SAM riboswitch aptamer (S box leader): a 107-nucleotide sequence from Pseudozobellia thermophila. Pairs were carried over by alignment from the consensus structure, which is taken from published work.
[Rfam]
RNA sequence: UCGUUAUCAAGAAAGGUGGAGGGACUAGACCCAUUGAAGCCUUGGCAACCCUUUUCUCAUAAAGAAGGUGCUACAUUCUAUCCCAAUUUUGUUGGGGCAGAUAACAA
Numbered sequence: 001u002c003g004u005u006a007u008c009a010a011g012a013a014a015g016g017u018g019g020a021g022g023g024a025c026u027a028g029a030c031c032c033a034u035u036g037a038a039g040c041c042u043u044g045g046c047a048a049c050c051c052u053u054u055u056c057u058c059a060u061a062a063a064g065a066a067g068g069u070g071c072u073a074c075a076u077u078c079u080a081u082c083c084c085a086a087u088u089u090u091g092u093u094g095g096g097g098c099a100g101a102u103a104a105c106a107a
Stems, first nucleotide, its partner, number of pairs: 001107001003105006013043005021032003026080004044072004049068002051064004076099001082096005
Notes:
Taxonomically the source falls in Pseudozobellia (Bacteria, Pseudomonadati, Flavobacteriia, Flavobacteriaceae). The SAM riboswitch is found upstream of a number of genes which code for proteins involved in methionine or cysteine biosynthesis in Gram-positive bacteria. The SAM riboswitch acts at the level of transcription termination control. The predicted structure consists of a complex stem-loop region followed by a single stem loop terminator region. An alternative and mutually exclusive form involves bases in the 3' segment of helix 1 with those in the 5' region of helix 5 to form a structure termed the anti-terminator form. This entry represents the conserved core of the complex structure involving helices 1-4.